[Rfam]
RNA sequence: GUAUAACAAGUAGUAGUAUAGGGUGAGUACACGGUGAUAGCCGUAGCUCCGGUUGAAAUCCGGACGCUUGUUAAACGGACAGCCGACAGGGUGCUUGGGGUGCUCUGUCGGCUGUUUUUUUG
Numbered sequence: 001g002u003a004u005a006a007c008a009a010g011u012a013g014u015a016g017u018a019u020a021g022g023g024u025g026a027g028u029a030c031a032c033g034g035u036g037a038u039a040g041c042c043g044u045a046g047c048u049c050c051g052g053u054u055g056a057a058a059u060c061c062g063g064a065c066g067c068u069u070g071u072u073a074a075a076c077g078g079a080c081a082g083c084c085g086a087c088a089g090g091g092u093g094c095u096u097g098g099g100g101u102g103c104u105c106u107g108u109c110g111g112c113u114g115u116u117u118u119u120u121u122g
Stems, first nucleotide, its partner, number of pairs: 004073006013065001031044005048064005079115017

Source information
The record is a 122-nucleotide RNA from Ruminococcus sp. CAG:579, which matches "Streptococcus sRNA SpF41" in Rfam. A search with the family's covariance model found it, with a score of 62 bits.